[Rfam]
The family of this 88-nucleotide RNA sequence from Cinara cedri is "bantam microRNA precursor family".
RNA sequence: CAUUUGACGCGAAGCUGGUUUUCACUUUGAUCUGUCAGAUUUUACGAUUUACCAUUUCUGAGAUCAUUGUGAAAGCUAAUUUCGUGAC
Numbered sequence: 001c002a003u004u005u006g007a008c009g010c011g012a013a014g015c016u017g018g019u020u021u022u023c024a025c026u027u028u029g030a031u032c033u034g035u036c037a038g039a040u041u042u043u044a045c046g047a048u049u050u051a052c053c054a055u056u057u058c059u060g061a062g063a064u065c066a067u068u069g070u071g072a073a074a075g076c077u078a079a080u081u082u083c084g085u086g087a088c
Base pairs, nucleotide, nucleotide: 009085010084011083012082013081014080016078017077018076019075020074021073022072023071024070025069028066029065030064031063032062033061